A member of the RNA family "U7 small nuclear RNA" from Hucho hucho, 55 nucleotides long. It scores 40 bits against the family's covariance model. Rfam describes the family as follows. Animal histone pre-mRNAs are spliced by a different mechanism than nuclear pre-mRNAs and self-splicing introns. This processing involves the U7 snRNP, which contains only one RNA species: U7. The family's consensus secondary structure was predicted with PFOLD.

RNA sequence: AACAAUUUUCUCUUUUAGUAUUUGUUCAGUAGGUUUCCUCAAGGAGAAAGCCCAA
Numbered sequence: 001a002a003c004a005a006u007u008u009u010c011u012c013u014u015u016u017a018g019u020a021u022u023u024g025u026u027c028a029g030u031a032g033g034u035u036u037c038c039u040c041a042a043g044g045a046g047a048a049a050g051c052c053c054a055a
Base pairs, nucleotide, nucleotide: 032052033051034050035049036048038046039045040044